[Rfam]
RNA sequence: GCCAUCCUAGACAUGCCAGCGCCAUGGGUGCAGUCACUCUGCUGUGUCUAUAAUAUCUGGGCAAAGAGAAAGUGGCCAUUUCUGUGCUCAGUGUUCACAAACCAGUGAACACUAAGAAUGGUUUAUAGCCUGAUGUUU
Numbered sequence: 001g002c003c004a005u006c007c008u009a010g011a012c013a014u015g016c017c018a019g020c021g022c023c024a025u026g027g028g029u030g031c032a033g034u035c036a037c038u039c040u041g042c043u044g045u046g047u048c049u050a051u052a053a054u055a056u057c058u059g060g061g062c063a064a065a066g067a068g069a070a071a072g073u074g075g076c077c078a079u080u081u082c083u084g085u086g087c088u089c090a091g092u093g094u095u096c097a098c099a100a101a102c103c104a105g106u107g108a109a110c111a112c113u114a115a116g117a118a119u120g121g122u123u124u125a126u127a128g129c130c131u132g133a134u135g136u137u138u
Stems, first nucleotide, its partner, number of pairs: 005061003010056001024051004074130003082121003087116002092111006
Shown here is a 138-nucleotide RNA from Saimiri boliviensis, a member of the family "Small nucleolar RNA SNORA43".
ACA43 is a member of the H/ACA class of snoRNA that guide the sites of modification of uridines to pseudouridines.
Lineage of the source: Eukaryota > Eumetazoa > Simiiformes > Platyrrhini > Saimiri boliviensis.
Gene Ontology terms of the family: RNA processing and nucleolus.